[Rfam]
RNA sequence: CGACCCUGCCUUUCAGGCAUCCUCUCCCAAACUUCCAAAUCCCGGUCGGCAACGGCCGGGAUUUUUUUCGUCCCGC
Numbered sequence: 001c002g003a004c005c006c007u008g009c010c011u012u013u014c015a016g017g018c019a020u021c022c023u024c025u026c027c028c029a030a031a032c033u034u035c036c037a038a039a040u041c042c043c044g045g046u047c048g049g050c051a052a053c054g055g056c057c058g059g060g061a062u063u064u065u066u067u068u069c070g071u072c073c074c075g076c
Stems, first nucleotide, its partner, number of pairs: 008018004040061009
The family of this 76-nucleotide RNA from Novosphingobium sp. CF614 is "Makes More Granules Regulator RNA (mmgR)". SuhB later renamed mmgR (makes more granules regulator) was a putative non-coding RNA found multiple times in the Agrobacterium tumefaciens genome and related alpha-proteobacteria. The organism belongs to Novosphingobium, within Bacteria. It scores 42 bits against the family's covariance model. Rfam classes the family as a small RNA. The literature on the family includes a 2005 paper in Genome Biol by Corbino et al., "Evidence for a second class of S-adenosylmethionine riboswitches and other regulatory RNA motifs in alpha-proteobacteria".